The family of this 93-nucleotide RNA from a Syntrophomonadaceae bacterium is "c-di-GMP-I riboswitch aptamer". The base pairs follow the family's consensus structure, which is taken from published work. The organism belongs to Syntrophomonadaceae, within Bacteria.

Nucleotides: 093
Stems, first nucleotide, its partner, number of pairs: 012038002017033001018031005041087004046083003049078003056072003
Number, partner (000 for none) and nucleotide at each position: 001000u002000c003000c004000u005000g006000c007000g008000a009000g010000g011000g012038g013037c014000a015000a016000g017033c018031u019030u020029u021028u022027c023000g024000a025000a026000a027022g028021g029020a030019a031018a032000u033017g034000u035000g036000c037013g038012c039000a040000a041087a042086g043085c044084c045000a046083u047082g048081g049078g050077u051076c052000u053000a054000a055000g056072g057071u058070c059000u060000g061000a062000c063000a064000a065000u066000g067000u068000c069000u070058g071057a072056c073000u074000a075000u076051g077050a078049c079000u080000g081048c082047c083046a084044g085043g086042c087041u088000g089000c090000c091000a092000g093000g